[Rfam]
RNA: Mammalian CPEB3 ribozyme
Organism: Alligator sinensis
RNA sequence: UGAGAGUUCAAGGCUACCGCAGAAGCACUCACAGUGUAGCCAUGUCAGAUUCCAACGAAUCUGCAAAUUCUGCU
Number, nucleotide and partner (000 for none) at each position: 001u000002g000003a000004g000005a000006g000007u000008u000009c000010a000011a000012g041013g040014c039015u038016a000017c000018c000019g073020c072021a071022g070023a069024a068025g037026c036027a035028c000029u000030c000031a000032c000033a000034g000035u027036g026037u025038a015039g014040c013041c012042a000043u000044g000045u000046c063047a062048g061049a060050u059051u058052c057053c000054a000055a000056c000057g052058a051059a050060u049061c048062u047063g046064c000065a000066a000067a000068u024069u023070c022071u021072g020073c019074u000